[Rfam]
RNA: pemK RNA
Organism: Callorhinchus milii
RNA sequence: ACAAGUGAUACUCCCACACAAUCUGAGAUCAGUUGAGUACCAAGAGAUGGUGAAAGUCCAGUGA
Number, nucleotide and partner (000 for none) at each position: 001a000002c000003a000004a000005g000006u000007g000008a000009u000010a000011c000012u000013c061014c000015c027016a000017c025018a000019c000020a000021a000022u000023c000024u000025g017026a000027g015028a000029u047030c046031a000032g000033u043034u042035g041036a000037g000038u000039a000040c000041c035042a034043a033044g000045a000046g030047a029048u060049g059050g058051u000052g000053a000054a000055a000056g000057u000058c050059c049060a048061g013062u000063g000064a000